mir-568 microRNA precursor family: a 93-nucleotide RNA from Cricetulus griseus. Gene Ontology terms of the family: miRNA-mediated post-transcriptional gene silencing and RISC complex.
[Rfam]
RNA sequence: AUAUACACUCUAUUAUGUAUAAAUGUAUACACACUUCCUAUAUAUGUCUACACAUAUCUGGUGUAUAUAUUAUACAUGUAUAGGCCUGUGUGU
Numbered sequence: 001a002u003a004u005a006c007a008c009u010c011u012a013u014u015a016u017g018u019a020u021a022a023a024u025g026u027a028u029a030c031a032c033a034c035u036u037c038c039u040a041u042a043u044a045u046g047u048c049u050a051c052a053c054a055u056a057u058c059u060g061g062u063g064u065a066u067a068u069a070u071u072a073u074a075c076a077u078g079u080a081u082a083g084g085c086c087u088g089u090g091u092g093u
Base pairs, nucleotide, nucleotide: 003087006084008083009082011080012079013078015077016076017075018074019073020072021071022070024069025068026067027066028065029064030063031062032061039056040055041054043052045050